Rfam assigns this 69-nucleotide sequence from Sapajus apella to the family "Small nucleolar RNA SNORD77". The match comes from Rfam's covariance-model search (43 bits). Its family is annotated with RNA processing and nucleolus in the Gene Ontology. U77 belongs to the C/D family of snoRNAs. It is predicted to guide 2'O-ribose methylation of large 28S rRNA subunit at position A1521. The C/D snoRNAs U44, U47, U74, U75, U76, U78, U79, U80 and U81 share the same host gene as U77 (non-coding). Pairs were carried over by alignment from the consensus structure, which was predicted with RNAalifold. A reference for the family is Tycowski et al. (2004), "Guide RNAs with 5' caps and novel box C/D snoRNA-like domains for modification of snRNAs in metazoa", Curr Biol.
RNA sequence: AUACUAUGAUGGUUGCAUAGUUCAACAGGUUGAAUUUAUAAAGAGAUUUACAAUUAUAAUAUUGAAUGU
Numbered sequence: 001a002u003a004c005u006a007u008g009a010u011g012g013u014u015g016c017a018u019a020g021u022u023c024a025a026c027a028g029g030u031u032g033a034a035u036u037u038a039u040a041a042a043g044a045g046a047u048u049u050a051c052a053a054u055u056a057u058a059a060u061a062u063u064g065a066a067u068g069u
Base pairs, nucleotide, nucleotide: 003069004068006039007038008037009035010034013028014027015026044060045055046054047053048052